[Rfam]
Rfam assigns this 93-nucleotide RNA sequence from Zhenhengia yiwuensis to the family "PyrR binding site".
This family represents the PyrR binding site and terminator structure.
Pairs were carried over by alignment from the consensus structure, which is taken from published work.
The family's RNA type in Rfam is cis-regulatory element.
RNA sequence: GAUACCUUUAAGAUAGUCCAGAGAGGCUAAGAAGGUUAUACAUUGAACGGUGUAUGAGUCUUAAUAUCUUAAAGGGAUAUUAGGGCUUUUUUU
Numbered sequence: 001g002a003u004a005c006c007u008u009u010a011a012g013a014u015a016g017u018c019c020a021g022a023g024a025g026g027c028u029a030a031g032a033a034g035g036u037u038a039u040a041c042a043u044u045g046a047a048c049g050g051u052g053u054a055u056g057a058g059u060c061u062u063a064a065u066a067u068c069u070u071a072a073a074g075g076g077a078u079a080u081u082a083g084g085g086c087u088u089u090u091u092u093u
Stems, first nucleotide, its partner, number of pairs: 004036006014029005038055007056088014